[Rfam]
RNA sequence: GAUGUUAAAGGUGAUGAAACUCACCUUCUGGCAUUUCCAGAGAACCGCCACUCGGCUAAUAGUUUCUAGCUCAAC
Numbered sequence: 001g002a003u004g005u006u007a008a009a010g011g012u013g014a015u016g017a018a019a020c021u022c023a024c025c026u027u028c029u030g031g032c033a034u035u036u037c038c039a040g041a042g043a044a045c046c047g048c049c050a051c052u053c054g055g056c057u058a059a060u061a062g063u064u065u066c067u068a069g070c071u072c073a074a075c
Stems, first nucleotide, its partner, number of pairs: 010025004016066006047056003

The family of this 75-nucleotide RNA from Fischerella thermalis is "Fluoride riboswitch aptamer (crcB RNA motif)". Rfam links the family to the GO terms response to fluoride and positive regulation of gene expression. The organism belongs to Fischerella thermalis, within Bacteria.